[Rfam]
RNA sequence: UGAGUCUUUCAUGCUUGUCUCUCGGGGUCACAAACGAGCUCCCAGUAGCUCACAUGUGUAUUUUUCACAUGGUCCUCCACCCUGGGUAAAGUCCCCGGGCCUAGGAUAGAAAGUAUCAAGGUGUAAAAAUUGUGUUUCGGUGCUUAUUUGGUGCCGCCGCACAUUCGCCUAUAUUUCGCGGAAGCGCGCCUUGCGUACUUCAAUGAAGAGGAACCUCCGAAUUGUUGCGCUCGGUUUUGUCUGCGGAAAUUGCCAGAGGUUGUGUGGUUUUGUGCUUGCGCGCUUUACAACACUACUUGAGUUAUGGACGAGUUGGCGGAAUUAAAUUUCGCUUACACGGAAUGGGGCUUACAUUGAGAAAUUC
Number, nucleotide and partner (000 for none) at each position: 001u000002g364003a363004g362005u361006c000007u359008u358009u357010c356011a355012u000013g000014c312015u311016u310017g309018u308019c307020u000021c000022u085023c084024g083025g082026g081027g080028u079029c000030a000031c000032a000033a000034a000035c000036g051037a050038g049039c048040u047041c000042c000043c000044a000045g000046u000047a040048g039049c038050u037051c036052a000053c000054a000055u000056g000057u000058g000059u000060a000061u000062u000063u000064u000065u000066c000067a000068c000069a000070u000071g000072g000073u000074c000075c000076u000077c000078c000079a028080c027081c026082c025083u024084g023085g022086g000087u000088a000089a350090a349091g348092u000093c347094c346095c345096c344097g000098g000099g000100c000101c000102u000103a000104g000105g117106a116107u115108a114109g000110a000111a000112a000113g000114u108115a107116u106117c105118a000119a000120g000121g000122u000123g000124u000125a000126a000127a000128a000129a000130u000131u000132g000133u000134g000135u000136u000137u000138c000139g000140g000141u000142g000143c000144u000145u000146a000147u000148u000149u000150g000151g000152u000153g000154c000155c000156g000157c000158c000159g000160c000161a000162c000163a000164u000165u181166c180167g179168c178169c000170u000171a000172u000173a000174u000175u000176u000177c000178g168179c167180g166181g165182a000183a000184g000185c000186g000187c000188g000189c000190c000191u000192u000193g279194c278195g277196u000197a273198c272199u000200u000201c267202a000203a265204u264205g000206a000207a000208g000209a000210g000211g000212a000213a000214c000215c000216u000217c000218c000219g000220a000221a000222u000223u000224g000225u000226u000227g000228c000229g000230c000231u000232c000233g000234g000235u000236u000237u000238u000239g000240u000241c000242u000243g000244c000245g000246g000247a000248a000249a000250u000251u000252g260253c259254c258255a000256g000257a000258g254259g253260u252261u000262g000263u000264g204265u203266g000267g201268u000269u000270u000271u000272g198273u197274g000275c000276u000277u195278g194279c193280g000281c000282g000283c000284u000285u000286u000287a000288c000289a000290a000291c000292a000293c000294u000295a000296c000297u000298u000299g000300a000301g000302u000303u000304a000305u000306g000307g019308a018309c017310g016311a015312g014313u000314u000315g333316g332317c331318g330319g329320a000321a000322u000323u000324a000325a000326a000327u000328u000329u319330c318331g317332c316333u315334u000335a000336c000337a000338c000339g000340g000341a000342a000343u000344g096345g095346g094347g093348c091349u090350u089351a000352c000353a000354u000355u011356g010357a009358g008359a007360a000361a005362u004363u003364c002
About this RNA:
The record is a 364-nucleotide RNA from Scaptodrosophila lebanonensis, which matches "RNase MRP" in Rfam. About the family: RNase MRP is an enzymatically active ribonucleoprotein with two distinct roles in eukaryotes. In mitochondria it plays a direct role in the initiation of mitochondrial DNA replication. Lineage of the source: Eukaryota > Eumetabola > Aparaglossata > Colocasiomyini > Scaptodrosophila. It is annotated as a ribozyme.